Shown here is a 69-nucleotide RNA from Phocaeicola plebeius, a member of the family "Bacteroidetes FopS (family of paralogous sRNAs)". The organism belongs to Phocaeicola plebeius, within Bacteria. The RNA-binding protein RbpB and BTncRNA_FopS sRNA are involved in the post-transcription regulation of polysaccharide utilisation loci (PUL). FopS sRNAs function as post-transcriptional repressors by binding to the vicinity of the start codon of the first mRNA of target PUL polycistrons, typically corresponding to the cognate SusC homolog, impeding translation of the respective glycan transporter. Gene Ontology term of the family: sRNA-mediated gene silencing. The base pairs follow the family's consensus structure, which is taken from published work.
RNA sequence: GUGAUUUUUUUCAUAGUAUUAGAUUUAAGGUUAACAAGGUUGGGAGAAAGCGUUCUCCCAUUUUUUAUG
Dot-bracket structure: .........................................(((((((....)))))))..........
Numbered sequence: 001g002u003g004a005u006u007u008u009u010u011u012c013a014u015a016g017u018a019u020u021a022g023a024u025u026u027a028a029g030g031u032u033a034a035c036a037a038g039g040u041u042g043g044g045a046g047a048a049a050g051c052g053u054u055c056u057c058c059c060a061u062u063u064u065u066u067a068u069g
Stems, first nucleotide, its partner, number of pairs: 042059007